[Rfam]
Annotation
JUMPstart RNA: a 38-nucleotide RNA. A search with the family's covariance model found it, with a score of 57 bits.

RNA sequence: CAGCGUUUUGGCAGCUAUAAGCCAAGGGCGGUAGCGUG
Numbered sequence: 001c002a003g004c005g006u007u008u009u010g011g012c013a014g015c016u017a018u019a020a021g022c023c024a025a026g027g028g029c030g031g032u033a034g035c036g037u038g
Stems, first nucleotide, its partner, number of pairs: 008025005
Dot-bracket structure: .......(((((........))))).............